The record is a 102-nucleotide sequence from Arachis hypogaea, which matches "small nucleolar RNA snoR126" in Rfam. It scores 81 bits against the family's covariance model. The family's RNA type in Rfam is C/D-box small nucleolar RNA. The source organism's lineage runs through Eukaryota, Spermatophyta, Gunneridae, Dalbergieae and Arachis.
[Rfam]
RNA sequence: AGGCUGUGAUGACAGACAACAUUUCUCGAUUCUGAUCAGUGACCAGGACCAAAGCAAACGUGUUUGCUCUUUGAUGACAGUCUUUGUGCGUGUCUGAGCCUA
Numbered sequence: 001a002g003g004c005u006g007u008g009a010u011g012a013c014a015g016a017c018a019a020c021a022u023u024u025c026u027c028g029a030u031u032c033u034g035a036u037c038a039g040u041g042a043c044c045a046g047g048a049c050c051a052a053a054g055c056a057a058a059c060g061u062g063u064u065u066g067c068u069c070u071u072u073g074a075u076g077a078c079a080g081u082c083u084u085u086g087u088g089c090g091u092g093u094c095u096g097a098g099c100c101u102a
Base pairs, nucleotide, nucleotide: 001101002100003099004098
Pairs were carried over by alignment from the consensus structure, which was predicted with RNAalifold.